RNA: Bacillus sRNA ncr1575
RNA sequence: AGUACUAUAUAUGAAGGGAAGAUCGGUGACAGAUGAUUAAAUAAUUCUAUUUUACACGUAAAAUGUAUACGCAUUUUCAUUUAAAAUAGGAUUAGUCUGCCCAUUUAUAAUACCUUCUUCAUAUUUUUAUGAAGCUUAUUUAUGUAUGAAUGCUAAUCCUUCUGAAUUAUUUUUCAGAAGGAUUUUUUA
Number, nucleotide and partner (000 for none) at each position: 001a000002g000003u000004a000005c000006u000007a000008u000009a000010u000011a000012u000013g000014a000015a000016g000017g108018g000019a106020a000021g000022a000023u103024c000025g101026g100027u000028g000029a000030c000031a000032g000033a000034u000035g000036a000037u000038u000039a000040a000041a000042u094043a093044a092045u091046u090047c089048u088049a087050u086051u085052u084053u083054a082055c000056a000057c000058g000059u000060a077061a076062a075063a074064u073065g072066u071067a000068u000069a000070c000071g066072c065073a064074u063075u062076u061077u060078c000079a000080u000081u000082u054083a053084a052085a051086a050087u049088a048089g047090g046091a045092u044093u043094a042095g000096u000097c000098u000099g000100c026101c025102c000103a023104u000105u000106u019107a000108u017109a000110a000111u000112a000113c000114c000115u000116u000117c134118u133119u132120c131121a130122u129123a128124u000125u000126u000127u000128u123129a122130u121131g120132a119133a118134g117135c000136u000137u000138a000139u000140u000141u000142a000143u000144g000145u000146a000147u000148g000149a000150a000151u000152g000153c000154u000155a184156a183157u182158c181159c180160u179161u178162c177163u176164g175165a174166a000167u000168u000169a000170u000171u000172u000173u000174u165175c164176a163177g162178a161179a160180g159181g158182a157183u156184u155185u000186u000187u000188u000189a000